[Rfam]
Nucleotides: 110
Base pairs, nucleotide, nucleotide: 008023009022010021011020012019062110063109064103065102066101068099069098071096072095073094075092076091077090078089079088
Number, partner (000 for none) and nucleotide at each position: 001000u002000u003000g004000a005000a006000g007000u008023u009022c010021c011020a012019u013000c014000u015000a016000c017000a018000a019012a020011u021010g022009g023008g024000u025000a026000a027000g028000a029000c030000u031000u032000u033000a034000g035000u036000c037000u038000u039000a040000a041000u042000g043000u044000a045000g046000u047000a048000a049000g050000a051000a052000u053000c054000g055000u056000u057000g058000a059000a060000g061000g062110a063109g064103c065102c066101a067000u068099g069098c070000c071096c072095a073094a074000u075092a076091u077090c078089u079088u080000g081000u082000u083000u084000u085000c086000g087000u088079a089078a090077g091076a092075u093000a094073u095072u096071g097000g098069g099068c100000u101066u102065g103064g104000g105000u106000a107000a108000u109063u110062u

Plastid-psbA-1 3UTR RNA: a 110-nucleotide RNA from Asparagus officinalis. Plastid psbA-1 is a non-coding RNA (ncRNA) present in plastids. It was identified in inverted repeat sequences in the 3 prime untranslate region (3UTR) of photosystem II quinone-binding protein (psbA). Rfam classes the family as a cis-regulatory element. The family's consensus secondary structure was predicted with LocARNA. Taxonomically the source falls in Asparagus (Eukaryota, Streptophytina, Spermatophyta, Liliopsida).